Notes
Shown here is a 227-nucleotide RNA sequence from Hemibagrus wyckioides, a member of the family "Small nucleolar RNA SNORA53". A search with the family's covariance model found it, with a score of 109 bits. It is annotated as an H/ACA-box small nucleolar RNA. Lineage of the source: Eukaryota > Opisthokonta > Bilateria > Siluriformes > Hemibagrus. From the family's description: The snoRNA ACA53 belongs to the H/ACA family of pseudouridylation guide snoRNAs.
RNA sequence: CACACGUUCCUUAGAUCCACCUCUAGGGAGUCCUUCGGCUCUGGUGCUGCUGUUCUUUUGAGCAUGCAGCUCCAGGCUGGAGGCUCCCAGCAGCUUUUCUGGCUGUACAGUUGGAGGUGCUUGAGUCAUUGGCGUGUGAGAGCAGUCUACCUGCUCCUUCAGCCGAGUUGCUGCCCUGGCACCCACAGUGGACUUCACCAGGGUAGACAAGCUGGAGGGCGGACACA
Numbered sequence: 001c002a003c004a005c006g007u008u009c010c011u012u013a014g015a016u017c018c019a020c021c022u023c024u025a026g027g028g029a030g031u032c033c034u035u036c037g038g039c040u041c042u043g044g045u046g047c048u049g050c051u052g053u054u055c056u057u058u059u060g061a062g063c064a065u066g067c068a069g070c071u072c073c074a075g076g077c078u079g080g081a082g083g084c085u086c087c088c089a090g091c092a093g094c095u096u097u098u099c100u101g102g103c104u105g106u107a108c109a110g111u112u113g114g115a116g117g118u119g120c121u122u123g124a125g126u127c128a129u130u131g132g133c134g135u136g137u138g139a140g141a142g143c144a145g146u147c148u149a150c151c152u153g154c155u156c157c158u159u160c161a162g163c164c165g166a167g168u169u170g171c172u173g174c175c176c177u178g179g180c181a182c183c184c185a186c187a188g189u190g191g192a193c194u195u196c197a198c199c200a201g202g203g204u205a206g207a208c209a210a211g212c213u214g215g216a217g218g219g220c221g222g223a224c225a226c227a
Stems, first nucleotide, its partner, number of pairs: 002137007010125005018119008026088005034081004040076005047069004052063001054061002090106006151222005158216001160214004171206009183191003